This 47-nucleotide RNA sequence from Handroanthus impetiginosus belongs to the Rfam family "Plastid-rpl16 group II-D1 intron". The family has 538 seed sequences and 1,446 matches in Rfam 15.1. Rfam links the family to the GO term Group II intron splicing. Pairs were carried over by alignment from the consensus structure, which was predicted with LocARNA. Rfam describes the family as follows. Plastid-rpl16 is a non-coding RNA (ncRNA) recognised in plastids. It was recognised in and intronic region of a ribosome rpl16 gene.
[Rfam]
RNA sequence: ACGAGCUUCGAGCCAAUAAAGACUAAGAAGGAUGGCUCAAGAAUAAA
Numbered sequence: 001a002c003g004a005g006c007u008u009c010g011a012g013c014c015a016a017u018a019a020a021g022a023c024u025a026a027g028a029a030g031g032a033u034g035g036c037u038c039a040a041g042a043a044u045a046a047a
Base pairs, nucleotide, nucleotide: 007041008040010038011037012036013035014034015033017031
Dot-bracket structure: ......((.((((((.(.............).)))))).))......